[Rfam]
RNA sequence: AGCCGUGCGAUAAGCACAUAGCGAACUAUUCUUUCGCCUUUUACUAAAGAAUACCGUGUGUUUGUCGUACCAAGCGGCAUACGCCUAUUUUUGGAGGGUUGUCUCAUUUGAGAUCA
Numbered sequence: 001a002g003c004c005g006u007g008c009g010a011u012a013a014g015c016a017c018a019u020a021g022c023g024a025a026c027u028a029u030u031c032u033u034u035c036g037c038c039u040u041u042u043a044c045u046a047a048a049g050a051a052u053a054c055c056g057u058g059u060g061u062u063u064g065u066c067g068u069a070c071c072a073a074g075c076g077g078c079a080u081a082c083g084c085c086u087a088u089u090u091u092u093g094g095a096g097g098g099u100u101g102u103c104u105c106a107u108u109u110g111a112g113a114u115c116a
Stems, first nucleotide, its partner, number of pairs: 003077004008067011027053008097115004102110001
About this RNA: Rfam assigns this 116-nucleotide sequence from Brassica napus to the family "U5 spliceosomal RNA". The family's consensus secondary structure is taken from published work. Taxonomically the source falls in Brassica (Eukaryota, Streptophytina, Embryophyta, Brassicales).